[Rfam]
RNA sequence: GUCCCAUUGUCUUCUAUGGCUUUUUAUUCCUAUGUGAUUAUACUGCUCAUUUCAUAUAGGGAUUGAAGCCGUGCAAUACGGUGGGGC
Numbered sequence: 001g002u003c004c005c006a007u008u009g010u011c012u013u014c015u016a017u018g019g020c021u022u023u024u025u026a027u028u029c030c031u032a033u034g035u036g037a038u039u040a041u042a043c044u045g046c047u048c049a050u051u052u053c054a055u056a057u058a059g060g061g062a063u064u065g066a067a068g069c070c071g072u073g074c075a076a077u078a079c080g081g082u083g084g085g086g087c
Stems, first nucleotide, its partner, number of pairs: 002086009012076002015073009026063012
Shown here is an 87-nucleotide sequence from Pelodiscus sinensis, a member of the family "mir-135 microRNA precursor family". Gene Ontology terms of the family: gene silencing by miRNA and RISC complex. The match comes from Rfam's covariance-model search (77 bits). Rfam 15.1 lists 2,125 matches to the family in 647 species. The organism belongs to Pelodiscus, within Eukaryota.